Shown here is a 75-nucleotide RNA from Chlorocebus sabaeus, a member of the family "Small nucleolar RNA SNORD113/SNORD114 family". The imprinted human domain at 14q32 contains two clusters of tandemly repeated small nucleolar RNAs named 14q(I) and 14q(II) snoRNAs. These two clusters are named SNORD113 and SNORD114 respectively in the HGNC approved gene symbol nomenclature. The snoRNAs found in both clusters are clearly related and are represented here by a single family. These snoRNAs are intron encoded and are processed from the tissue-specific non-coding human MEG8 RNA, which lies downstream of the imprinted genes DLK1 and GTL2. snoRNAs 14q(I) and 14q(II) differ from previously identified C/D box snoRNAs in their expression profiles and lack of complementarity to rRNA and snRNA. Homologues of these snoRNAs are found in the imprinted non-coding mouse transcript Rian, and in the rat non-coding Bsr (brain-specific repetitive) RNA. On this family, see Cavaille et al., Hum Mol Genet 2002: "Identification of tandemly-repeated C/D snoRNA genes at the imprinted human 14q32 domain reminiscent of those at the Prader-Willi/Angelman syndrome region".

[Rfam]
RNA sequence: UGAGCCGGUGAUGACAGCUGGUGGCGUGUGAGUCAUGGAUGGUGAGUACUAAGUGCCUGGAACUCUGAGGUUCAA
Number, nucleotide and partner (000 for none) at each position: 001u000002g073003a072004g071005c070006c069007g000008g000009u000010g000011a000012u000013g000014a000015c000016a000017g000018c000019u000020g000021g000022u000023g000024g000025c000026g000027u000028g000029u000030g000031a000032g000033u000034c000035a000036u000037g000038g000039a000040u000041g000042g000043u000044g000045a000046g000047u000048a000049c000050u000051a000052a000053g000054u000055g000056c000057c000058u000059g000060g000061a000062a000063c000064u000065c000066u000067g000068a000069g006070g005071u004072u003073c002074a000075a000